[Rfam]
RNA sequence: GGGUGAAUGGCAGGGCAAUUCUCCCUUGGCGGAUAGAAAGCUAUAGGUGUUAACGACGAACUGUAAUGUCUUUCUCUCUGCCAAAGGAGAAUUGCACUGUUAUUCAUCA
Numbered sequence: 001g002g003g004u005g006a007a008u009g010g011c012a013g014g015g016c017a018a019u020u021c022u023c024c025c026u027u028g029g030c031g032g033a034u035a036g037a038a039a040g041c042u043a044u045a046g047g048u049g050u051u052a053a054c055g056a057c058g059a060a061c062u063g064u065a066a067u068g069u070c071u072u073u074c075u076c077u078c079u080g081c082c083a084a085a086g087g088a089g090a091a092u093u094g095c096a097c098u099g100u101u102a103u104u105c106a107u108c109a
Stems, first nucleotide, its partner, number of pairs: 005105005011099003015095005021089004027083007035075001
This 109-nucleotide RNA from Macleaya cordata belongs to the Rfam family "mir-399 microRNA precursor family". Rfam links the family to the GO terms miRNA-mediated post-transcriptional gene silencing and RISC complex. A reference for the family is Jones-Rhoades and Bartel (2004), "Computational Identification of Plant MicroRNAs and Their Targets, Including a Stress-Induced miRNA", Mol Cell. Lineage of the source: Eukaryota > Viridiplantae > Magnoliopsida > Mesangiospermae > Macleaya. The base pairs follow the family's consensus structure, which was predicted with PFOLD. A search with the family's covariance model found it, with a score of 66 bits.